[Rfam]
RNA: mir-192/215 microRNA precursor family
RNA sequence: ACAGGGUGAUGACCUAUGAAUUGACAGCCAGUGUUUGCAGUCCAGCUGCCUGUCAGUUCUGUAGGCCACUGUCCUGU
Numbered sequence: 001a002c003a004g005g006g007u008g009a010u011g012a013c014c015u016a017u018g019a020a021u022u023g024a025c026a027g028c029c030a031g032u033g034u035u036u037g038c039a040g041u042c043c044a045g046c047u048g049c050c051u052g053u054c055a056g057u058u059c060u061g062u063a064g065g066c067c068a069c070u071g072u073c074c075u076g077u
Stems, first nucleotide, its partner, number of pairs: 001077008010068002013065004018059010029048003